RNA sequence: AAUAAUAAGGGUCUUCUCUUCCCAGUUCUUCCCAGAAUUGGGAAAAGCUGGGUUGCGGGGGGGCAGGGACGAAGAG
Dot-bracket structure: .............(((.(..(((((...((((((....))))))...)))))..).))).................
Numbered sequence: 001a002a003u004a005a006u007a008a009g010g011g012u013c014u015u016c017u018c019u020u021c022c023c024a025g026u027u028c029u030u031c032c033c034a035g036a037a038u039u040g041g042g043a044a045a046a047g048c049u050g051g052g053u054u055g056c057g058g059g060g061g062g063g064c065a066g067g068g069a070c071g072a073a074g075a076g
Stems, first nucleotide, its partner, number of pairs: 014059003018055001021052005029044006